[Rfam]
RNA sequence: CGACCUCAGAUCAGACGAGACAACCCGCUGAAUUUAAGCAUAUUACUAAGCGGAGGAAAAGAAACUAACAAGGAUUCCCUCAGUAAGCGGCGAGCGAAGAGGGAAGAGCCCAGCGCCGAAUCCCCGCCCGGCGGUCGGGCGCGGGAAAAUGUGGCGUACGGAAGUCUGCUUGCCCGGCGGCGGCAGGGGGGCCUGAGUCCUUCUGAUAGAGGCUCUGCCCGUAGACAGGUGUGAGGACCGGUCAAAGGCUCCCGUCGCGCCGGGGUCCGGUCUUCUCGGUAGUCGGGUUGUUUGUGAAUGCAGCCCAAAGCGGGUGGUAAACUCCAUCUAAGGCUAAAUACCGGCGCGAGACCGAUAGCCGACAAGUACCUUAAGGGAAAGUUGAAAAGAACUUUGAAGAGAGAGUUCAACAGGGCGUGAAACCGUUGAGAGGUAAA
Numbered sequence: 001c002g003a004c005c006u007c008a009g010a011u012c013a014g015a016c017g018a019g020a021c022a023a024c025c026c027g028c029u030g031a032a033u034u035u036a037a038g039c040a041u042a043u044u045a046c047u048a049a050g051c052g053g054a055g056g057a058a059a060a061g062a063a064a065c066u067a068a069c070a071a072g073g074a075u076u077c078c079c080u081c082a083g084u085a086a087g088c089g090g091c092g093a094g095c096g097a098a099g100a101g102g103g104a105a106g107a108g109c110c111c112a113g114c115g116c117c118g119a120a121u122c123c124c125c126g127c128c129c130g131g132c133g134g135u136c137g138g139g140c141g142c143g144g145g146a147a148a149a150u151g152u153g154g155c156g157u158a159c160g161g162a163a164g165u166c167u168g169c170u171u172g173c174c175c176g177g178c179g180g181c182g183g184c185a186g187g188g189g190g191g192c193c194u195g196a197g198u199c200c201u202u203c204u205g206a207u208a209g210a211g212g213c214u215c216u217g218c219c220c221g222u223a224g225a226c227a228g229g230u231g232u233g234a235g236g237a238c239c240g241g242u243c244a245a246a247g248g249c250u251c252c253c254g255u256c257g258c259g260c261c262g263g264g265g266u267c268c269g270g271u272c273u274u275c276u277c278g279g280u281a282g283u284c285g286g287g288u289u290g291u292u293u294g295u296g297a298a299u300g301c302a303g304c305c306c307a308a309a310g311c312g313g314g315u316g317g318u319a320a321a322c323u324c325c326a327u328c329u330a331a332g333g334c335u336a337a338a339u340a341c342c343g344g345c346g347c348g349a350g351a352c353c354g355a356u357a358g359c360c361g362a363c364a365a366g367u368a369c370c371u372u373a374a375g376g377g378a379a380a381g382u383u384g385a386a387a388a389g390a391a392c393u394u395u396g397a398a399g400a401g402a403g404a405g406u407u408c409a410a411c412a413g414g415g416c417g418u419g420a421a422a423c424c425g426u427u428g429a430g431a432g433g434u435a436a437a
Stems, first nucleotide, its partner, number of pairs: 024055001025053005035042002065072002076104005087095002107335004114156005120150001121146004125141005161276001163273002166270001173264007187253007197213001199212004220224001228239002285306007312329005369376002392403004
Background:
A member of the RNA family "Eukaryotic large subunit ribosomal RNA" from Gasterosteus aculeatus, 437 nucleotides of a longer RNA. The source organism's lineage runs through Eukaryota, Osteoglossocephalai, Eupercaria, Gasterosteales and Gasterosteus. Pairs were carried over by alignment from the consensus structure, which is taken from published work.